[Rfam]
This 59-nucleotide RNA from Parambassis ranga belongs to the Rfam family "Selenocysteine insertion sequence 1".
The family's consensus secondary structure is taken from published work.
The source organism's lineage runs through Eukaryota, Clupeocephala, Acanthomorphata, Percomorphaceae and Parambassis.
Rfam classes the family as a cis-regulatory element.
RNA sequence: GUGUGUUAAUGACGGCCUGUCUCUAAACUCUGUGAGGGAGCAGGCCUGAUCUCUGACGC
Numbered sequence: 001g002u003g004u005g006u007u008a009a010u011g012a013c014g015g016c017c018u019g020u021c022u023c024u025a026a027a028c029u030c031u032g033u034g035a036g037g038g039a040g041c042a043g044g045c046c047u048g049a050u051c052u053c054u055g056a057c058g059c
Stems, first nucleotide, its partner, number of pairs: 001059004014046007022038002028036003